[Rfam]
RNA sequence: GUGUUUUUCAUAGUAUUAGAUUUAAGGUUAACAAAGGUUGGAGCAAGGCGUUGCUCCUUUUUUAUGU
Numbered sequence: 001g002u003g004u005u006u007u008u009c010a011u012a013g014u015a016u017u018a019g020a021u022u023u024a025a026g027g028u029u030a031a032c033a034a035a036g037g038u039u040g041g042a043g044c045a046a047g048g049c050g051u052u053g054c055u056c057c058u059u060u061u062u063u064a065u066g067u
Stems, first nucleotide, its partner, number of pairs: 040057007
Dot-bracket structure: .......................................(((((((....)))))))..........
RNA: Bacteroidetes FopS (family of paralogous sRNAs)
Organism: Bacteroides faecichinchillae